The record is a 79-nucleotide RNA from Accipiter nisus, which matches "mir-132 microRNA precursor family" in Rfam.
The family's consensus secondary structure was predicted with RNAalifold.
The literature on the family includes a 2005 paper in Genes Dev by Chen et al., "The developmental miRNA profiles of zebrafish as determined by small RNA cloning".
Gene Ontology terms of the family: miRNA-mediated post-transcriptional gene silencing and RISC complex.
The match comes from Rfam's covariance-model search (75 bits).

[Rfam]
RNA sequence: CGCCCGGGCGACCGUGGCUUUAGAUUGUUACUGUGCCGCUGGGGGGGUAACAGUCUACAGCCAUGGUCGCCGGGCCCGG
Numbered sequence: 001c002g003c004c005c006g007g008g009c010g011a012c013c014g015u016g017g018c019u020u021u022a023g024a025u026u027g028u029u030a031c032u033g034u035g036c037c038g039c040u041g042g043g044g045g046g047g048u049a050a051c052a053g054u055c056u057a058c059a060g061c062c063a064u065g066g067u068c069g070c071c072g073g074g075c076c077c078g079g
Stems, first nucleotide, its partner, number of pairs: 012066002015063004023055010

Record summary:
The organism belongs to Accipiter, within Eukaryota.